[Rfam]
RNA sequence: UGCGAUAGGGCAAGGGGCAGAGCCGGGACUGCCAAAGUGAAGCGGCGCGCCACAGAAGCAUGAGAACCAUUCAUGCCUGUCAUUGCCGACGCCGGUACAGCCACGCAGGAUCAUACCCUGUAUAAAAAAUGGGCUGUAUCACCGCACAAAGAAUGCGGGGCCUGGCGGUGCAGCGCGUUCUGGUAAAAAAACUCGGAGGGAAAUGCACGUAUGAUGGUUCCAUGCGUGCGUUUUC
Numbered sequence: 001u002g003c004g005a006u007a008g009g010g011c012a013a014g015g016g017g018c019a020g021a022g023c024c025g026g027g028a029c030u031g032c033c034a035a036a037g038u039g040a041a042g043c044g045g046c047g048c049g050c051c052a053c054a055g056a057a058g059c060a061u062g063a064g065a066a067c068c069a070u071u072c073a074u075g076c077c078u079g080u081c082a083u084u085g086c087c088g089a090c091g092c093c094g095g096u097a098c099a100g101c102c103a104c105g106c107a108g109g110a111u112c113a114u115a116c117c118c119u120g121u122a123u124a125a126a127a128a129a130u131g132g133g134c135u136g137u138a139u140c141a142c143c144g145c146a147c148a149a150a151g152a153a154u155g156c157g158g159g160g161c162c163u164g165g166c167g168g169u170g171c172a173g174c175g176c177g178u179u180c181u182g183g184u185a186a187a188a189a190a191a192c193u194c195g196g197a198g199g200g201a202a203a204u205g206c207a208c209g210u211a212u213g214a215u216g217g218u219u220c221c222a223u224g225c226g227u228g229c230g231u232u233u234u235c
Stems, first nucleotide, its partner, number of pairs: 001044003006039002016033005023196005045178006058076006064220007077168006201233013